[Rfam]
Rfam assigns this 79-nucleotide RNA sequence from Diabrotica virgifera to the family "mir-315 microRNA precursor family". Rfam links the family to the GO terms miRNA-mediated post-transcriptional gene silencing and RISC complex. The family's consensus secondary structure was predicted with RNAalifold.
RNA sequence: GGUCUUUUUGGUUUUGAUUGUUGCUCAGAAAGCCGUGAUUUUUGUAGGCUUUCGGGCAGUAAUCAAUUCCACACAGGUC
Numbered sequence: 001g002g003u004c005u006u007u008u009u010g011g012u013u014u015u016g017a018u019u020g021u022u023g024c025u026c027a028g029a030a031a032g033c034c035g036u037g038a039u040u041u042u043u044g045u046a047g048g049c050u051u052u053c054g055g056g057c058a059g060u061a062a063u064c065a066a067u068u069c070c071a072c073a074c075a076g077g078u079c
Stems, first nucleotide, its partner, number of pairs: 001079005007073001014066005020060007028053007